The family of this 122-nucleotide sequence from Marisediminitalea aggregata is "Manganese Mn2+ riboswitch aptamer (yybP-ykoY)".
RNA sequence: UAGGGGAGUAGCUUUCUCGCAAGAGAGUCGUUAUCAACACACUUGGAACGCAUUUCCAUGGUAACGACGUGGUUGUAGGUCAAGAGGCCUUAUCACUAUUAGCAAGACCUAAGACAAUAACC
Dot-bracket structure: ...............(((....))).((((((((((.......(((((.....)))))))))))))))((.((((.......................................)))).)).
Numbered sequence: 001u002a003g004g005g006g007a008g009u010a011g012c013u014u015u016c017u018c019g020c021a022a023g024a025g026a027g028u029c030g031u032u033a034u035c036a037a038c039a040c041a042c043u044u045g046g047a048a049c050g051c052a053u054u055u056c057c058a059u060g061g062u063a064a065c066g067a068c069g070u071g072g073u074u075g076u077a078g079g080u081c082a083a084g085a086g087g088c089c090u091u092a093u094c095a096c097u098a099u100u101a102g103c104a105a106g107a108c109c110u111a112a113g114a115c116a117a118u119a120a121c122c
Stems, first nucleotide, its partner, number of pairs: 016025003027068010044058005069121002072118004